[Rfam]
RNA sequence: UCUAGAACUUAAGAUAUGGGCUGAACACUAAACAGUAUACGGGCCACAGGACAGAUUCGGACUUCUCUAUUGUUGCUAUAAUUUGGACUUGAAAACGGCCUUUUUAAAUCUUGGCCUCCACAUGAAAGUUGUAGGCCUAUGUCUUACCAAAUCUGUG
Numbered sequence: 001u002c003u004a005g006a007a008c009u010u011a012a013g014a015u016a017u018g019g020g021c022u023g024a025a026c027a028c029u030a031a032a033c034a035g036u037a038u039a040c041g042g043g044c045c046a047c048a049g050g051a052c053a054g055a056u057u058c059g060g061a062c063u064u065c066u067c068u069a070u071u072g073u074u075g076c077u078a079u080a081a082u083u084u085g086g087a088c089u090u091g092a093a094a095a096c097g098g099c100c101u102u103u104u105u106a107a108a109u110c111u112u113g114g115c116c117u118c119c120a121c122a123u124g125a126a127a128g129u130u131g132u133a134g135g136c137c138u139a140u141g142u143c144u145u146a147c148c149a150a151a152u153c154u155g156u157g
Base pairs, nucleotide, nucleotide: 003155004154005153006152009146011145012144013143014142015141016140017139018138019137020136021134022133023132025130027129028128029127035123036122041119042118043117048112049111050110051109054105055104059100060099062098063097068092072088073087074086